[Rfam]
This 68-nucleotide sequence from Peribacillus faecalis belongs to the Rfam family "Bacillaceae-1 RNA". It scores 38 bits against the family's covariance model. It is annotated as a small RNA.
RNA sequence: GAGGGUGAAACAAAGACUAAAACCGCCACGUCCGCAUGUCUUCGUCUUUGUGACUCUCAUCCUGAGAG
Numbered sequence: 001g002a003g004g005g006u007g008a009a010a011c012a013a014a015g016a017c018u019a020a021a022a023c024c025g026c027c028a029c030g031u032c033c034g035c036a037u038g039u040c041u042u043c044g045u046c047u048u049u050g051u052g053a054c055u056c057u058c059a060u061c062c063u064g065a066g067a068g
Stems, first nucleotide, its partner, number of pairs: 011050007025040001027038002054068005